[Rfam]
The record is a 388-nucleotide part of an RNA from Fusarium longipes, which matches "Ascomycota telomerase RNA" in Rfam. It scores 356 bits against the family's covariance model. Lineage of the source: Eukaryota > Fungi > sordariomyceta > Hypocreales > Fusarium sambucinum species complex. The literature on the family includes a 2013 paper in Nucleic Acids Res by Qi et al., "The common ancestral core of vertebrate and fungal telomerase RNAs".

RNA sequence: AAUCAUACAGAAGGAGUUCUCUUUUUUCACUGUCAGUGUGUUACUGGACUGCGUUUUGUCGUGAUAACCUUUCGGCAGAAUCGUGUUUAUGAAGGUAUCGGACCAAUAUGAAAUUGUCAGCUCACGAAACAAUCUUCAUCUUUGAACGCUCACUGUUGCACGAUGAUGCUUGUAGUUGAUGUUGGAAGCAGUACUGGGACCCAUCUCGAGUUGGAGUCAAAGUUUCGUGCUUGUCUGGUACUGUGAAAGACUAUCCUGCGAGUUAGAAUCAUGCCUUUGAGUGAUAAUGGUAAGAUUGGGUUGCAUUGUUGGAUCUAGGACAGGCCUUGUUGGGUAAGGUAGUCCUGGCUGUCCUCUCCCCUGGAAAUGGUGGGGAGGACAGCCCCCC
Dot-bracket structure: .....................................................................................................................................................................................................((((((........))).))).((((.....))))............................................................................................................................................................
Background:
Gene Ontology terms of the family: telomerase activity, telomere maintenance via telomerase and telomerase catalytic core complex. By type it is a non-coding RNA gene.